[Rfam]
RNA sequence: CCUCACCAUGAUGAGUAGCUUCUGACUUUCGUUCUUCUGAGUUUGCUGAAGCCAGAUGCCAUUCUGAGGAAAAAGGAAGG
Dot-bracket structure: (((..(.....................................................................).)))
RNA: Small nucleolar RNA SNORD59
Organism: Galemys pyrenaicus